The family of this 187-nucleotide sequence from Streptomyces sp. Ru71 is "c-di-AMP riboswitch aptamer (ydaO/yuaA leader)".
RNA sequence: UCACCCAUCGGACCAACUCAUCCGUGUACGGCAGGAGCGGGGGACCCAGGUAAGUCGCCGAACCGGGCGUCGUCAGCCGACGACACCCCGGGCCGGCUCGGGGUGAAGCCGUGCCGCCUUCGCGGCCGGCCGGGCAUCUCCAGCCCGAACCCGACAGCUCACCUCGCAGGCGUGGGAGAGGAACUUC
Numbered sequence: 001u002c003a004c005c006c007a008u009c010g011g012a013c014c015a016a017c018u019c020a021u022c023c024g025u026g027u028a029c030g031g032c033a034g035g036a037g038c039g040g041g042g043g044a045c046c047c048a049g050g051u052a053a054g055u056c057g058c059c060g061a062a063c064c065g066g067g068c069g070u071c072g073u074c075a076g077c078c079g080a081c082g083a084c085a086c087c088c089c090g091g092g093c094c095g096g097c098u099c100g101g102g103g104u105g106a107a108g109c110c111g112u113g114c115c116g117c118c119u120u121c122g123c124g125g126c127c128g129g130c131c132g133g134g135c136a137u138c139u140c141c142a143g144c145c146c147g148a149a150c151c152c153g154a155c156a157g158c159u160c161a162c163c164u165c166g167c168a169g170g171c172g173u174g175g176g177a178g179a180g181g182a183a184c185u186u187c
Stems, first nucleotide, its partner, number of pairs: 001036002037167006047100001101152003109129003132146004

Taxonomically the source falls in Streptomyces (Bacteria, Actinomycetota, Actinomycetes, Streptomycetaceae).